[Rfam]
RNA: SucA RNA motif
Organism: Xylophilus rhododendri
Nucleotides: 080
Base pairs, nucleotide, nucleotide: 002080003079004078006034007033008032009031010030015025016024017023018022036046037045038044039043048076049075050074054070055069056068057067058066059065060064
Number, partner (000 for none) and nucleotide at each position: 001000u002080c003079g004078c005000a006034u007033c008032c009031g010030c011000c012000a013000a014000u015025c016024g017023g018022u019000u020000c021000a022018g023017c024016c025015g026000u027000g028000u029000c030010g031009c032008g033007g034006a035000a036046g037045g038044u039043u040000u041000c042000a043039a044038a045037c046036c047000a048076g049075c050074u051000c052000a053000g054070g055069u056068u057067u058066u059065c060064u061000c062000c063000a064060g065059g066058a067057a068056a069055a070054c071000g072000a073000a074050a075049g076048u077000a078004g079003c080002g